Rfam assigns this 87-nucleotide RNA from Zophobas morio to the family "mir-276 microRNA precursor family". The literature on the family includes a 2010 paper in BMC Genomics by Skalsky et al., "Identification of microRNAs expressed in two mosquito vectors, Aedes albopictus and Culex quinquefasciatus". The source organism's lineage runs through Eukaryota, Metazoa, Endopterygota, Coleoptera and Zophobas.
RNA sequence: UGAUUGGUAGACCACUAGCGAGGUAUAGAGUUCCUACGUGGUUUCGCAAGUGUAGGAACUUCAUACCGUGCUCUUGGAUUUGCCGAC
Numbered sequence: 001u002g003a004u005u006g007g008u009a010g011a012c013c014a015c016u017a018g019c020g021a022g023g024u025a026u027a028g029a030g031u032u033c034c035u036a037c038g039u040g041g042u043u044u045c046g047c048a049a050g051u052g053u054a055g056g057a058a059c060u061u062c063a064u065a066c067c068g069u070g071c072u073c074u075u076g077g078a079u080u081u082g083c084c085g086a087c
Stems, first nucleotide, its partner, number of pairs: 012077003017072004022067005028061010